[Rfam]
This 125-nucleotide RNA from Ceratodon purpureus belongs to the Rfam family "U11 spliceosomal RNA". Clan: U1 clan. The family's RNA type in Rfam is spliceosomal small nuclear RNA.
RNA sequence: CAAAAGGGUCAGUUGGUUAAAUAUACCACGCGGGUCUUCUGACCUGUGCUGUAUGGCUUAUCAAGACAUAUCGCUGACACAAUUUUUGUAAUAGAAUAGGGUUGGCUCGCCUUGCCGACCCUCCC
Numbered sequence: 001c002a003a004a005a006g007g008g009u010c011a012g013u014u015g016g017u018u019a020a021a022u023a024u025a026c027c028a029c030g031c032g033g034g035u036c037u038u039c040u041g042a043c044c045u046g047u048g049c050u051g052u053a054u055g056g057c058u059u060a061u062c063a064a065g066a067c068a069u070a071u072c073g074c075u076g077a078c079a080c081a082a083u084u085u086u087u088g089u090a091a092u093a094g095a096a097u098a099g100g101g102u103u104g105g106c107u108c109g110c111c112u113u114g115c116c117g118a119c120c121c122u123c124c125c
Stems, first nucleotide, its partner, number of pairs: 008078005014028004029048008049073001051071005098122008110114001